This 133-nucleotide sequence from Tripterygium wilfordii belongs to the Rfam family "MIR828 microRNA precursor family".
RNA sequence: CUAAUGUUUCUUGCUCAAAUGAGUAUUCCAAACGCAGUUUUUCACUCAAAAAUUUGUUUGAUUUCUGGGACUGGAUAUUAUUUGGGUUGGGGCUGCUGUGAGCUGAGAUGCUCAUCUGAGCAAGUAAUGUUUG
Numbered sequence: 001c002u003a004a005u006g007u008u009u010c011u012u013g014c015u016c017a018a019a020u021g022a023g024u025a026u027u028c029c030a031a032a033c034g035c036a037g038u039u040u041u042u043c044a045c046u047c048a049a050a051a052a053u054u055u056g057u058u059u060g061a062u063u064u065c066u067g068g069g070a071c072u073g074g075a076u077a078u079u080a081u082u083u084g085g086g087u088u089g090g091g092g093c094u095g096c097u098g099u100g101a102g103c104u105g106a107g108a109u110g111c112u113c114a115u116c117u118g119a120g121c122a123a124g125u126a127a128u129g130u131u132u133g
Base pairs, nucleotide, nucleotide: 004130005129006128007127008126010124011123012122013121014120015119016118017117019115020114021113022112023111024110025109026108027107029105030104
On this family, see Fahlgren et al., Plant Cell 2010: "MicroRNA gene evolution in Arabidopsis lyrata and Arabidopsis thaliana".